[Rfam]
RNA sequence: CUAUAUAAUGGGCAAACUUAUCGAAAGGUAAGGACGCAAAGCCACGGGCCUAAAGUAGGAAACUAAGGUCGCCGGGUUGCACUC
Numbered sequence: 001c002u003a004u005a006u007a008a009u010g011g012g013c014a015a016a017c018u019u020a021u022c023g024a025a026a027g028g029u030a031a032g033g034a035c036g037c038a039a040a041g042c043c044a045c046g047g048g049c050c051u052a053a054a055g056u057a058g059g060a061a062a063c064u065a066a067g068g069u070c071g072c073c074g075g076g077u078u079g080c081a082c083u084c
Stems, first nucleotide, its partner, number of pairs: 012037002017032006040078004045074003048069003055063002
Rfam assigns this 84-nucleotide sequence from Pontibacillus halophilus to the family "c-di-GMP-I riboswitch aptamer". Rfam describes the family as follows. GEMM was predicted in a large-scale screen for bacterial structured RNA regulatory elements. The base pairs follow the family's consensus structure, which is taken from published work.